[Rfam]
The family of this 82-nucleotide RNA sequence from Herbiconiux salviae is "ZMP/ZTP riboswitch aptamer (pfl RNA motif)". Pairs were carried over by alignment from the consensus structure, which is taken from published work. The organism belongs to Herbiconiux, within Bacteria.
RNA sequence: UGGCCGCGUCGCAACUGGCGUUCAGAUGGUCACCAUCGGGAAGCGACGGACAGGGAUUCGGCCGCGCGCCUGGGUCGAUACG
Numbered sequence: 001u002g003g004c005c006g007c008g009u010c011g012c013a014a015c016u017g018g019c020g021u022u023c024a025g026a027u028g029g030u031c032a033c034c035a036u037c038g039g040g041a042a043g044c045g046a047c048g049g050a051c052a053g054g055g056a057u058u059c060g061g062c063c064g065c066g067c068g069c070c071u072g073g074g075u076c077g078a079u080a081c082g
Stems, first nucleotide, its partner, number of pairs: 003051001005049001007048006015040002017070005026036004059077005